[Rfam]
RNA sequence: GAUCAUGUACCCAAUGUUGAUGCCGGGAUUAGUCUGCAAAACUAAUUUAACGCAGGUUCGAUUCCUGUCAUGAUCU
Numbered sequence: 001g002a003u004c005a006u007g008u009a010c011c012c013a014a015u016g017u018u019g020a021u022g023c024c025g026g027g028a029u030u031a032g033u034c035u036g037c038a039a040a041a042c043u044a045a046u047u048u049a050a051c052g053c054a055g056g057u058u059c060g061a062u063u064c065c066u067g068u069c070a071u072g073a074u075c076u
Base pairs, nucleotide, nucleotide: 001075002074003073004072005071006070007069010027011026012025029045030044031043032042033041052068053067054066055065056064
A member of the RNA family "tRNA" from Chitinophaga niabensis, 76 nucleotides long. The family's consensus secondary structure is taken from published work. By type it is a transfer RNA.